[Rfam]
Rfam assigns this 110-nucleotide RNA to the family "Small nucleolar RNA SNORD23".
RNA sequence: UGCCCAGUGAUGACACCAUCCUUGCUCCCCGUGCCCCCCAGGGGCUAUGGGCGACACCAUGGCUGCCCCUGGGCUGGGCCAGUGGGGCCAAUGCCCAGGGGCUGAGGGCA
Numbered sequence: 001u002g003c004c005c006a007g008u009g010a011u012g013a014c015a016c017c018a019u020c021c022u023u024g025c026u027c028c029c030c031g032u033g034c035c036c037c038c039c040a041g042g043g044g045c046u047a048u049g050g051g052c053g054a055c056a057c058c059a060u061g062g063c064u065g066c067c068c069c070u071g072g073g074c075u076g077g078g079c080c081a082g083u084g085g086g087g088c089c090a091a092u093g094c095c096c097a098g099g100g101g102c103u104g105a106g107g108g109c110a
Stems, first nucleotide, its partner, number of pairs: 001110005

Description: The sequence is in the family's curated seed alignment. Gene Ontology terms of the family: nucleolus and RNA processing.